A member of the RNA family "SAM riboswitch aptamer (S box leader)" from Paenibacillus sp. oral taxon 786, 130 nucleotides long.
[Rfam]
RNA sequence: AUCUUAUCAAGAGCAGGUGGAGGGACUAGCCCGAUGAUACCCGGCAACCGGCGAUGAAACCCAUCGCAGCGGUGCUAAUUCUUGCAGGACCGUCCGUUUCGAACGCUGGACGGCUUCUGAGAGAUGAGAG
Numbered sequence: 001a002u003c004u005u006a007u008c009a010a011g012a013g014c015a016g017g018u019g020g021a022g023g024g025a026c027u028a029g030c031c032c033g034a035u036g037a038u039a040c041c042c043g044g045c046a047a048c049c050g051g052c053g054a055u056g057a058a059a060c061c062c063a064u065c066g067c068a069g070c071g072g073u074g075c076u077a078a079u080u081c082u083u084g085c086a087g088g089a090c091c092g093u094c095c096g097u098u099u100c101g102a103a104c105g106c107u108g109g110a111c112g113g114c115u116u117c118u119g120a121g122a123g124a125u126g127a128g129a130g
Stems, first nucleotide, its partner, number of pairs: 002129007013042001016041003022032003026084001028082002043076004048072002051067005080122001085119005
About the family: The SAM riboswitch is found upstream of a number of genes which code for proteins involved in methionine or cysteine biosynthesis in Gram-positive bacteria.